[Rfam]
Shown here is an 87-nucleotide RNA from Alicyclobacillus sp. SO9, a member of the family "ZMP/ZTP riboswitch aptamer (pfl RNA motif)". Rfam links the family to the GO terms regulation of purine nucleotide biosynthetic process and one-carbon metabolic process.
RNA sequence: CAGUGUUCGCAUGACUGGCGGAUUUUUAAGGGGAUUACCUUGUGGGAGUGCGAAUGAAUGAAAUUGCCGACCGCCUGGGCGCUGCUC
Numbered sequence: 001c002a003g004u005g006u007u008c009g010c011a012u013g014a015c016u017g018g019c020g021g022a023u024u025u026u027u028a029a030g031g032g033g034a035u036u037a038c039c040u041u042g043u044g045g046g047a048g049u050g051c052g053a054a055u056g057a058a059u060g061a062a063a064u065u066g067c068c069g070a071c072c073g074c075c076u077g078g079g080c081g082c083u084g085c086u087c
Base pairs, nucleotide, nucleotide: 004056005055006054007053008052009051010050011049012048015045016044017075018074019073020072021071028041029040030039031038065081066080067079068078
About this RNA: The base pairs follow the family's consensus structure, which is taken from published work.